Background: Xanthomonas sRNA sX14/Xoo3: a 92-nucleotide RNA from Xanthomonas euvesicatoria. It is one of the family's seed sequences. The family's RNA type in Rfam is small RNA. Lineage of the source: Bacteria > Gammaproteobacteria > Lysobacterales > Lysobacteraceae > Xanthomonas. For this family Rfam cites "Genome-wide transcriptome analysis of the plant pathogen Xanthomonas identifies sRNAs with putative virulence functions" (Schmidtke et al., Nucleic Acids Res, 2011).
RNA sequence: GUCCGAUGUCAGUCGGAAGCUGUGCCACUCAUUGUCCACCGGGCUUGUCCCGGUUUUCGAAGGGAUCGGGCCUUGUGUCCGAUCCUUUUUUU
Numbered sequence: 001g002u003c004c005g006a007u008g009u010c011a012g013u014c015g016g017a018a019g020c021u022g023u024g025c026c027a028c029u030c031a032u033u034g035u036c037c038a039c040c041g042g043g044c045u046u047g048u049c050c051c052g053g054u055u056u057u058c059g060a061a062g063g064g065a066u067c068g069g070g071c072c073u074u075g076u077g078u079c080c081g082a083u084c085c086u087u088u089u090u091u092u
Stems, first nucleotide, its partner, number of pairs: 002017006022032003038054006059089010070078002